[Rfam]
RNA sequence: UACACGGACUUCAGUCGCAGGAGAGAUGACACCUUCUGUUUCUAAUGGCAUGGUUGCAACCAAUUUUAACAGGAGUUGUCAUCUUUCUUCGACUGAAGUCCAUAUGCAU
Dot-bracket structure: .....((.((((.((((.(((.(((((((.................................................))))))).))))))).)))))).........
Numbered sequence: 001u002a003c004a005c006g007g008a009c010u011u012c013a014g015u016c017g018c019a020g021g022a023g024a025g026a027u028g029a030c031a032c033c034u035u036c037u038g039u040u041u042c043u044a045a046u047g048g049c050a051u052g053g054u055u056g057c058a059a060c061c062a063a064u065u066u067u068a069a070c071a072g073g074a075g076u077u078g079u080c081a082u083c084u085u086u087c088u089u090c091g092a093c094u095g096a097a098g099u100c101c102a103u104a105u106g107c108a109u
Stems, first nucleotide, its partner, number of pairs: 006100002009098004014093004019089003023085007